Record summary: This 139-nucleotide RNA sequence from Notechis scutatus belongs to the Rfam family "Small Cajal body specific RNA 3". For this family Rfam cites "RNomics: an experimental approach that identifies 201 candidates for novel, small, non-messenger RNAs in mouse" (Huttenhofer et al., EMBO J, 2001). Rfam's curators write: scaRNAs are a specific class of small nuclear RNAs which localise to the Cajal bodies and guide the modification of RNA polymerase II transcribed spliceosomal RNAs U1, U2, U4, U5 and U12. Gene Ontology terms of the family: nucleolus, RNA processing and Cajal body. Rfam classes the family as a small Cajal body RNA.
RNA sequence: CCUGGAAGCUGAACAAACCUCUCAAGCAGGCAAUUGCAGCCUCUUUUGCCUGUCCUGUCAGCCUUCCUAGAUUAAAAAGUGAAGGUCUCUCUCUGGGUUAGCCCAGCGAACUGAUCCAGAUCGUUCCCCUUUACACAGA
Numbered sequence: 001c002c003u004g005g006a007a008g009c010u011g012a013a014c015a016a017a018c019c020u021c022u023c024a025a026g027c028a029g030g031c032a033a034u035u036g037c038a039g040c041c042u043c044u045u046u047u048g049c050c051u052g053u054c055c056u057g058u059c060a061g062c063c064u065u066c067c068u069a070g071a072u073u074a075a076a077a078a079g080u081g082a083a084g085g086u087c088u089c090u091c092u093c094u095g096g097g098u099u100a101g102c103c104c105a106g107c108g109a110a111c112u113g114a115u116c117c118a119g120a121u122c123g124u125u126c127c128c129c130u131u132u133a134c135a136c137a138g139a
Stems, first nucleotide, its partner, number of pairs: 004067003008062005026053006036045001081132005089123001092120002095117007
Dot-bracket structure: ...(((.(((((.............((((((....(........)..))))))....)))))..))).............(((((...(..((.(((((((.........))))))).))..)....))))).......